About this RNA: The family of this 152-nucleotide sequence from Sesamum indicum is "small nucleolar RNA snoR134". The organism belongs to Sesamum, within Eukaryota. The literature on the family includes a 2009 paper in Nucleic Acids Res by Chen and Wu, "Mining small RNA sequencing data: a new approach to identify small nucleolar RNAs in Arabidopsis". The family has 5 seed sequences and 792 matches in Rfam 15.1. Rfam classes the family as an H/ACA-box small nucleolar RNA.

RNA sequence: UUGCACGUAGCCUCCCGGGCUCCUCUGAAAAUUUAUAGCUGAAGAAAGAAGCCCCAAUGCUCGUGCAACAUCGAUGCCGUCAAGUGUUGCAGAUUUGUCGCACUGUACCUUUUCUUCCACGGCUUAUCUGUGUCAAAUCGACGGCUAUAUUU
Number, nucleotide and partner (000 for none) at each position: 001u000002u000003g066004c065005a064006c063007g062008u000009a000010g060011c059012c000013u000014c000015c000016c000017g054018g053019g052020c051021u050022c048023c000024u045025c044026u043027g000028a000029a000030a000031a000032u000033u000034u000035a000036u000037a000038g000039c000040u000041g000042a000043a026044g025045a024046a000047a000048g022049a000050a021051g020052c019053c018054c017055c000056a000057a000058u000059g011060c010061u000062c007063g006064u005065g004066c003067a000068a000069c000070a000071u000072c000073g000074a000075u000076g145077c144078c143079g142080u141081c140082a000083a000084g000085u135086g134087u000088u132089g131090c130091a129092g128093a127094u000095u000096u000097g123098u122099c121100g000101c000102a000103c000104u000105g000106u000107a000108c000109c000110u000111u000112u000113u000114c000115u000116u000117c000118c000119a000120c000121g099122g098123c097124u000125u000126a000127u093128c092129u091130g090131u089132g088133u000134c086135a085136a000137a000138u000139c000140g081141a080142c079143g078144g077145c076146u000147a000148u000149a000150u000151u000152u000